[Rfam]
RNA sequence: ACGCAGGCUUAGUCAGGUGGUUACUUCGUUUACCAGAAAAAACAAUUGACCUACAUUCAAUCGGGCUAACACCCAGAACCACGGACGCAGUCCUGCGAUUUU
Number, nucleotide and partner (000 for none) at each position: 001a000002c097003g096004c095005a094006g093007g092008c000009u000010u000011a000012g086013u085014c084015a000016g000017g082018u081019g080020g079021u000022u000023a000024c000025u078026u077027c076028g000029u000030u000031u000032a000033c000034c000035a000036g000037a000038a000039a000040a000041a000042a000043c000044a000045a000046u000047u000048g000049a000050c000051c000052u000053a000054c000055a000056u000057u000058c000059a000060a000061u000062c000063g000064g000065g000066c000067u000068a000069a000070c000071a000072c000073c000074c000075a000076g027077a026078a025079c020080c019081a018082c017083g000084g014085a013086c012087g000088c000089a000090g000091u000092c007093c006094u005095g004096c003097g002098a000099u000100u000101u000102u000

A member of the RNA family "Vault RNA" from Magallana gigas, 102 nucleotides long.
From the family's description: This family of RNAs are found as part of the enigmatic vault ribonucleoprotein complex.
On this family, see Stadler et al., Mol Biol Evol 2009: "Evolution of Vault RNAs".